[Rfam]
RNA sequence: AAUGUUAAGCAGAAGCCAUCCGCUUCUCACCUUACGACUCACGUUGUUAAGGUAUCUUCUGGUCCUGAGCUUAGUAUGUGCUCACGAUUGUUUUAGAAGACGGGUGGUAUUCAUCCGUCUUUUUUCUUAUGC
Numbered sequence: 001a002a003u004g005u006u007a008a009g010c011a012g013a014a015g016c017c018a019u020c021c022g023c024u025u026c027u028c029a030c031c032u033u034a035c036g037a038c039u040c041a042c043g044u045u046g047u048u049a050a051g052g053u054a055u056c057u058u059c060u061g062g063u064c065c066u067g068a069g070c071u072u073a074g075u076a077u078g079u080g081c082u083c084a085c086g087a088u089u090g091u092u093u094u095a096g097a098a099g100a101c102g103g104g105u106g107g108u109a110u111u112c113a114u115c116c117g118u119c120u121u122u123u124u125u126c127u128u129a130u131g132c
Base pairs, nucleotide, nucleotide: 011027012026013025014024015023016022029053030052031051034047035046036045037044038043099119100118101117102116103115104114105113106112107111
Description
A member of the RNA family "Ribosomal protein L20 leader" from Desulfosporosinus cupriresistens, 132 nucleotides long. Gene Ontology term of the family: regulation of gene expression. From the family's description: This family is a putative r-protein leader autoregulatory structure found in B. subtilis and other low-GC Gram-positive bacteria. It is located in the 5' untranslated regions of mRNAs encoding initiation factor 3 followed by ribosomal proteins L35 and L20 (infC-rpmI-rplT). Rfam classes the family as a cis-regulatory leader. Pairs were carried over by alignment from the consensus structure, which was predicted with CMfinder.